[Rfam]
RNA sequence: GCCGAGCUCAGUUGCGAGAGCUUGUUACCCGAGCGGGGGCAACAGGGUGGGCUUGGACGUUUGAUGGUGUGGUUGGGUCUGGGCUGCAGUUGUGCGAGGGGCUGGCCCGCCCGGUCCAAGUUGGGUUUGUGGGUCAUGUGGGCCCAGGCGGAGGCUUUGGGUCAAGUGGCCCCUGAAGUGGAGGGGAACGCGUGAGGCUGGCUUCACAGAGCAGCGAACACCUCCCGCUCUCAACGGUGGACGGAUUACGGGCCGCCGCAUUCGCAGUCCAAUAUGGCCCAGCAGCCCACUCAAACGGACAUCCACUUUU
Numbered sequence: 001g002c003c004g005a006g007c008u009c010a011g012u013u014g015c016g017a018g019a020g021c022u023u024g025u026u027a028c029c030c031g032a033g034c035g036g037g038g039g040c041a042a043c044a045g046g047g048u049g050g051g052c053u054u055g056g057a058c059g060u061u062u063g064a065u066g067g068u069g070u071g072g073u074u075g076g077g078u079c080u081g082g083g084c085u086g087c088a089g090u091u092g093u094g095c096g097a098g099g100g101g102c103u104g105g106c107c108c109g110c111c112c113g114g115u116c117c118a119a120g121u122u123g124g125g126u127u128u129g130u131g132g133g134u135c136a137u138g139u140g141g142g143c144c145c146a147g148g149c150g151g152a153g154g155c156u157u158u159g160g161g162u163c164a165a166g167u168g169g170c171c172c173c174u175g176a177a178g179u180g181g182a183g184g185g186g187a188a189c190g191c192g193u194g195a196g197g198c199u200g201g202c203u204u205c206a207c208a209g210a211g212c213a214g215c216g217a218a219c220a221c222c223u224c225c226c227g228c229u230c231u232c233a234a235c236g237g238u239g240g241a242c243g244g245a246u247u248a249c250g251g252g253c254c255g256c257c258g259c260a261u262u263c264g265c266a267g268u269c270c271a272a273u274a275u276g277g278c279c280c281a282g283c284a285g286c287c288c289a290c291u292c293a294a295a296c297g298g299a300c301a302u303c304c305a306c307u308u309u310u
Stems, first nucleotide, its partner, number of pairs: 001040003004023006028037003044309008054301002058297005063291001065289003070285001072283008081270007092261003103255007111244002114242005120235006128227001131172006139165001141163006147156003173178001180225005191216003198209003

The record is a 310-nucleotide sequence from Ananas comosus, which matches "Plant signal recognition particle RNA" in Rfam. The organism belongs to Ananas, within Eukaryota. Rfam classes the family as a non-coding RNA gene.